[Rfam]
RNA sequence: AGCUUGCCAAUGACGUCACAAAAUAAAUGUCUGAACUGAUGACAUCACAGUGAUUUAUUUUUAAGAUCUUUACUAAAGCAAGCU
Numbered sequence: 001a002g003c004u005u006g007c008c009a010a011u012g013a014c015g016u017c018a019c020a021a022a023a024u025a026a027a028u029g030u031c032u033g034a035a036c037u038g039a040u041g042a043c044a045u046c047a048c049a050g051u052g053a054u055u056u057a058u059u060u061u062u063a064a065g066a067u068c069u070u071u072a073c074u075a076a077a078g079c080a081a082g083c084u
Stems, first nucleotide, its partner, number of pairs: 002083006
A member of the RNA family "Small nucleolar RNA SNORD72" from Salvelinus namaycush, 84 nucleotides long. On this family, see Huttenhofer et al., EMBO J 2001: "RNomics: an experimental approach that identifies 201 candidates for novel, small, non-messenger RNAs in mouse". Pairs were carried over by alignment from the consensus structure. The organism belongs to Salvelinus, within Eukaryota. The family's RNA type in Rfam is C/D-box small nucleolar RNA. About the family: snoRNA HBII-240 belongs to the CD family of snoRNAs. It is the human orthologue of the mouse MBII-240 and is predicted to guide 2'O-ribose methylation of the large 28S rRNA at residue U4590.